[Rfam]
Source information: Glycine riboswitch aptamer: a 109-nucleotide RNA from Usitatibacter palustris. The organism belongs to Usitatibacter, within Bacteria.
RNA sequence: UACCCGGACUCUGGAGAGCGGCGACACAUUCGCCCACCGAAGGGGCUAGCGCAGCGCGGCAGGGUUCGCACUGUGUAAUCUCUCAGGUACCGAGGACAGAGGGGUCAAA
Numbered sequence: 001u002a003c004c005c006g007g008a009c010u011c012u013g014g015a016g017a018g019c020g021g022c023g024a025c026a027c028a029u030u031c032g033c034c035c036a037c038c039g040a041a042g043g044g045g046c047u048a049g050c051g052c053a054g055c056g057c058g059g060c061a062g063g064g065u066u067c068g069c070a071c072u073g074u075g076u077a078a079u080c081u082c083u084c085a086g087g088u089a090c091c092g093a094g095g096a097c098a099g100a101g102g103g104g105u106c107a108a109a
Stems, first nucleotide, its partner, number of pairs: 009101005020034004036088003039084002043082003049076006
It scores 50 bits against the family's covariance model.